[Rfam]
RNA sequence: UAAUGGCAAUUUGAAAGGGUCCCUUAAGGGGUAACCUUUAAGCGCAAAUCGGGUGAAUUGCUGGAACUUCCUAAAGCUUUCUUUCCUACAACGUAACUGGAAACGGUAAGCGUGAAUGGCCGAAAAGAAGAAAGAUGUAACAAUGGAUAAUCAGCAGCCCAGCUCCUGUACCGAAAGGUUGGAGAAGGUUCAACGACUAGGAUGAACCACCUAAAGCAAAUGCCAUGGUGAUGAGAUCCGUAGGGAUAGAGGUGUCCCGAAGUACCCGACAACCUAAAUAGGUUGAAGAUAUAGUCUGGCAUGUAUUGAAAAAUAUAU
Numbered sequence: 001u002a003a004u005g006g007c008a009a010u011u012u013g014a015a016a017g018g019g020u021c022c023c024u025u026a027a028g029g030g031g032u033a034a035c036c037u038u039u040a041a042g043c044g045c046a047a048a049u050c051g052g053g054u055g056a057a058u059u060g061c062u063g064g065a066a067c068u069u070c071c072u073a074a075a076g077c078u079u080u081c082u083u084u085c086c087u088a089c090a091a092c093g094u095a096a097c098u099g100g101a102a103a104c105g106g107u108a109a110g111c112g113u114g115a116a117u118g119g120c121c122g123a124a125a126a127g128a129a130g131a132a133a134g135a136u137g138u139a140a141c142a143a144u145g146g147a148u149a150a151u152c153a154g155c156a157g158c159c160c161a162g163c164u165c166c167u168g169u170a171c172c173g174a175a176a177g178g179u180u181g182g183a184g185a186a187g188g189u190u191c192a193a194c195g196a197c198u199a200g201g202a203u204g205a206a207c208c209a210c211c212u213a214a215a216g217c218a219a220a221u222g223c224c225a226u227g228g229u230g231a232u233g234a235g236a237u238c239c240g241u242a243g244g245g246a247u248a249g250a251g252g253u254g255u256c257c258c259g260a261a262g263u264a265c266c267c268g269a270c271a272a273c274c275u276a277a278a279u280a281g282g283u284u285g286a287a288g289a290u291a292u293a294g295u296c297u298g299g300c301a302u303g304u305a306u307u308g309a310a311a312a313a314u315a316u317a318u
Stems, first nucleotide, its partner, number of pairs: 001015001027037003049269004054264002059156006069147003157189002163184004170179003193297001195296005272283004303316005

Annotation
Group I catalytic intron: a 318-nucleotide RNA from Proteiniborus ethanoligenes. Taxonomically the source falls in Proteiniborus (Bacteria, Bacillota, Clostridia, Eubacteriales).